Description
The family of this 143-nucleotide RNA from Aureusvirus cucumis is "Tombusvirus 5' UTR". Rfam classes the family as a cis-regulatory element. The family's consensus secondary structure is taken from published work.

[Rfam]
RNA sequence: GAAUACCUACUAGACCGUCUAACCAGCGUGUCUGAGAGUUGCGUAGCCAUACGUAUAGGUAUUCUCUCCUAAUUUAGGGGUUUGAAGACUGGGUCUAGCUUAAUAGCGGAUAAAUUGUAACUUCCAGUAAAAUGGCGAACAUG
Numbered sequence: 001g002a003a004u005a006c007c008u009a010c011u012a013g014a015c016c017g018u019c020u021a022a023c024c025a026g027c028g029u030g031u032c033u034g035a036g037a038g039u040u041g042c043g044u045a046g047c048c049a050u051a052c053g054u055a056u057a058g059g060u061a062u063u064c065u066c067u068c069c070u071a072a073u074u075u076a077g078g079g080g081u082u083u084g085a086a087g088a089c090u091g092g093g094u095c096u097a098g099c100u101u102a103a104u105a106g107c108g109g110a111u112a113a114a115u116u117g118u119a120a121c122u123u124c125c126a127g128u129a130a131a132a133u134g135g136c137g138a139a140c141a142u143g
Stems, first nucleotide, its partner, number of pairs: 001064009012033004040055005066080005088128005094110003098107003